[Rfam]
RNA sequence: GGUCCCGGCCGUGACUGGCGUGAGGUGGAGUACCACCGGGGAGCGGCCCGACAGCAGCGACUUCGUGCACCGGCCGCCUGGGUGCCACGU
Numbered sequence: 001g002g003u004c005c006c007g008g009c010c011g012u013g014a015c016u017g018g019c020g021u022g023a024g025g026u027g028g029a030g031u032a033c034c035a036c037c038g039g040g041g042a043g044c045g046g047c048c049c050g051a052c053a054g055c056a057g058c059g060a061c062u063u064c065g066u067g068c069a070c071c072g073g074c075c076g077c078c079u080g081g082g083u084g085c086c087a088c089g090u
Base pairs, nucleotide, nucleotide: 005050007048008047009046010045011044012043015040016039017078018077019076020075025036026035027034028033067085068084069083070082071081
Shown here is a 90-nucleotide RNA from Ruania alkalisoli, a member of the family "ZMP/ZTP riboswitch aptamer (pfl RNA motif)". The family's consensus secondary structure is taken from published work. NCBI's taxonomy places the organism under Bacteria, Bacillati, Actinomycetes, Micrococcales, Ruania.